Record summary: Shown here is an 85-nucleotide sequence from Dipodomys ordii, a member of the family "mir-489 microRNA precursor family". The organism belongs to Dipodomys, within Eukaryota. The family has 21 seed sequences and 631 matches in Rfam 15.1. On this family, see Bentwich et al., Nat Genet 2005: "Identification of hundreds of conserved and nonconserved human microRNAs". The match comes from Rfam's covariance-model search (64 bits). The family's consensus secondary structure was predicted with RNAalifold.

[Rfam]
RNA sequence: GUGGGCAGCUUGGCUGUCAUAUGUGUGGAGCCAUUUGCUUGAACUUUGAGAAGUCACAUCGCAUAUAUGAUGGCUAAACUGCCAC
Numbered sequence: 001g002u003g004g005g006c007a008g009c010u011u012g013g014c015u016g017u018c019a020u021a022u023g024u025g026u027g028g029a030g031c032c033a034u035u036u037g038c039u040u041g042a043a044c045u046u047u048g049a050g051a052a053g054u055c056a057c058a059u060c061g062c063a064u065a066u067a068u069g070a071u072g073g074c075u076a077a078a079c080u081g082c083c084a085c
Stems, first nucleotide, its partner, number of pairs: 002084002005082004016071008025062004030057001033054002039050001